RNA sequence: CAACGUGCUCCGGGGUCGGUGAGAAUCCGAACCGGCGGUGACAGUCCGCGAACCGCGGCGUCGCAUCCUCGAUGCGGCCGCGGUCGACCCGGUGGAACUCCGGGACCGACGGUGAUGCGAUGGCCAGCCAUCGCGAGUCCGGAUGGGAGGCAGCACGUGC
Numbered sequence: 001c002a003a004c005g006u007g008c009u010c011c012g013g014g015g016u017c018g019g020u021g022a023g024a025a026u027c028c029g030a031a032c033c034g035g036c037g038g039u040g041a042c043a044g045u046c047c048g049c050g051a052a053c054c055g056c057g058g059c060g061u062c063g064c065a066u067c068c069u070c071g072a073u074g075c076g077g078c079c080g081c082g083g084u085c086g087a088c089c090c091g092g093u094g095g096a097a098c099u100c101c102g103g104g105a106c107c108g109a110c111g112g113u114g115a116u117g118c119g120a121u122g123g124c125c126a127g128c129c130a131u132c133g134c135g136a137g138u139c140c141g142g143a144u145g146g147g148a149g150g151c152a153g154c155a156c157g158u159g160c
Stems, first nucleotide, its partner, number of pairs: 003158007010149001017029003033108002035049004044106002052084008088104005110141003
Shown here is a 160-nucleotide RNA from Microbacterium sp. SYP-A9085, a member of the family "FMN riboswitch aptamer (RFN element)". Taxonomically the source falls in Microbacterium (Bacteria, Bacillati, Actinomycetes, Microbacteriaceae). A search with the family's covariance model found it, with a score of 72 bits. The family has 146 seed sequences and 6,230 matches in Rfam 15.1.